[Rfam]
RNA sequence: UUCUUAUCAAGAGAAGCUGAGGGAUCUGGCCCUGUGAAGCUUCAGCAACCUCUGACAACUGUCAGAAAGGUGCUAAUUCCUUGGGAGAUAAGAG
Numbered sequence: 001u002u003c004u005u006a007u008c009a010a011g012a013g014a015a016g017c018u019g020a021g022g023g024a025u026c027u028g029g030c031c032c033u034g035u036g037a038a039g040c041u042u043c044a045g046c047a048a049c050c051u052c053u054g055a056c057a058a059c060u061g062u063c064a065g066a067a068a069g070g071u072g073c074u075a076a077u078u079c080c081u082u083g084g085g086a087g088a089u090a091a092g093a094g
Stems, first nucleotide, its partner, number of pairs: 001094008013043005021032003028080002044074004049070002051066004078086001

Rfam assigns this 94-nucleotide sequence from Virgibacillus necropolis to the family "SAM riboswitch aptamer (S box leader)". The match comes from Rfam's covariance-model search (81 bits). Taxonomically the source falls in Virgibacillus (Bacteria, Bacillota, Caryophanales, Bacillaceae). Rfam links the family to the GO term regulation of gene expression.